[Rfam]
RNA sequence: GUGAUGGGUAGAGGCUGCAACAUUCAUCAGUACCGCAUGCGAGGAUGACAACAAUGACCAUGUGGGAAAGGGAGGUUUGCCGAAGCUGAUCGUCCGGAGUCACCGGAGGUCGGGCUGGGGCCAUUCUGAAUAAGAAUGGCACUGUCAUUUGUGCGGGAAGAUGCGCAUGAAUGGAGAGCUACAGACCGG
Numbered sequence: 001g002u003g004a005u006g007g008g009u010a011g012a013g014g015c016u017g018c019a020a021c022a023u024u025c026a027u028c029a030g031u032a033c034c035g036c037a038u039g040c041g042a043g044g045a046u047g048a049c050a051a052c053a054a055u056g057a058c059c060a061u062g063u064g065g066g067a068a069a070g071g072g073a074g075g076u077u078u079g080c081c082g083a084a085g086c087u088g089a090u091c092g093u094c095c096g097g098a099g100u101c102a103c104c105g106g107a108g109g110u111c112g113g114g115c116u117g118g119g120g121c122c123a124u125u126c127u128g129a130a131u132a133a134g135a136a137u138g139g140c141a142c143u144g145u146c147a148u149u150u151g152u153g154c155g156g157g158a159a160g161a162u163g164c165g166c167a168u169g170a171a172u173g174g175a176g177a178g179c180u181a182c183a184g185a186c187c188g189g
Base pairs, nucleotide, nucleotide: 008182009181010180011179017080018079019078020077023074024073025072033065034064035063036062037061038060039059084116085115086114087113088111089110090109091108093107094106095105096104117143118142120140121139122138123137124136125135126134127133145174146173147172148171149170150169151168152167153166154165155164
Rfam assigns this 189-nucleotide sequence from Planococcus lenghuensis to the family "Lysine riboswitch aptamer". Taxonomically the source falls in Planococcus (Bacteria, Bacilli, Caryophanales, Caryophanaceae).